This 178-nucleotide sequence from Plectonema radiosum belongs to the Rfam family "Antisense RNA which regulates isiA expression". Pairs were carried over by alignment from the consensus structure, which was predicted with PFOLD. The source organism's lineage runs through Bacteria, Cyanophyceae, Oscillatoriophycideae, Microcoleaceae and Plectonema radiosum.
RNA sequence: GAUAACCAUAUAUAACUAGUGGAUUCAGAGUCGGAUUAGUAACUGUGCGGACAGUCUCAGAUGCAGCAUCAUAGAGUCCACCAAAAUACAUUGCCUUAGCUACCAAUAACAAGGCUCCUGCUCCUAAGAACAACAAGUGAUGUCCCAAAAUAAUCCCCAGUUGUUUGGGAUCAUCCCA
Number, nucleotide and partner (000 for none) at each position: 001g000002a000003u000004a000005a000006c000007c000008a000009u000010a000011u000012a000013u000014a000015a000016c000017u000018a000019g000020u000021g000022g000023a000024u000025u000026c000027a000028g000029a000030g000031u000032c000033g000034g000035a000036u000037u000038a000039g000040u000041a000042a000043c000044u000045g000046u000047g000048c000049g000050g000051a000052c000053a000054g000055u000056c000057u000058c000059a000060g000061a000062u000063g000064c000065a000066g000067c000068a000069u000070c000071a000072u000073a000074g000075a000076g000077u000078c000079c000080a000081c000082c000083a000084a000085a000086a000087u000088a000089c000090a000091u000092u000093g000094c000095c000096u000097u000098a000099g000100c000101u000102a000103c000104c000105a000106a000107u000108a000109a000110c000111a000112a000113g000114g000115c000116u000117c000118c000119u000120g000121c000122u000123c000124c000125u000126a000127a000128g000129a000130a000131c000132a000133a000134c000135a000136a000137g174138u173139g172140a171141u170142g000143u000144c169145c168146c167147a166148a165149a000150a000151u000152a000153a000154u000155c000156c000157c000158c000159a000160g000161u000162u000163g000164u000165u148166u147167g146168g145169g144170a141171u140172c139173a138174u137175c000176c000177c000178a000